RNA sequence: UGGUGGUGAUGUCUAAACUCACGAUGGUCUUCAGAGCCUCUCUUGGUGAAGGGGAGCUGCUGACAAUGCCAGUGGCAAUUGCUGAACCAUAAGA
Numbered sequence: 001u002g003g004u005g006g007u008g009a010u011g012u013c014u015a016a017a018c019u020c021a022c023g024a025u026g027g028u029c030u031u032c033a034g035a036g037c038c039u040c041u042c043u044u045g046g047u048g049a050a051g052g053g054g055a056g057c058u059g060c061u062g063a064c065a066a067u068g069c070c071a072g073u074g075g076c077a078a079u080u081g082c083u084g085a086a087c088c089a090u091a092a093g094a
Base pairs, nucleotide, nucleotide: 001089002088003087004086
RNA: Small nucleolar RNA SNORD35